Description: The record is a 65-nucleotide RNA from Menidia menidia, which matches "Selenocysteine insertion sequence 1" in Rfam. The organism belongs to Menidia, within Eukaryota. About the family: The incorporation of selenocysteine into a protein sequence is directed by an in-frame UGA codon (usually a stop codon) within the coding region of the mRNA. Selenoprotein mRNAs contain a conserved secondary structure in the 3' UTR that is required for the distinction of UGA stop from UGA selenocysteine. Gene Ontology term of the family: selenocysteine incorporation. The family's RNA type in Rfam is cis-regulatory element. On this family, see Lambert et al., Biochimie 2002: "A survey of metazoan selenocysteine insertion sequences".

[Rfam]
RNA sequence: GUGUGUCUCAAUGAUGAACUGUUUCGAAACUCUGCCGAGAGAACAGCUCUGAUGCUAUGGCACAC
Numbered sequence: 001g002u003g004u005g006u007c008u009c010a011a012u013g014a015u016g017a018a019c020u021g022u023u024u025c026g027a028a029a030c031u032c033u034g035c036c037g038a039g040a041g042a043a044c045a046g047c048u049c050u051g052a053u054g055c056u057a058u059g060g061c062a063c064a065c
Base pairs, nucleotide, nucleotide: 001065002064003063004062005061016049017048019046020045021044022043023042024041030039031038032037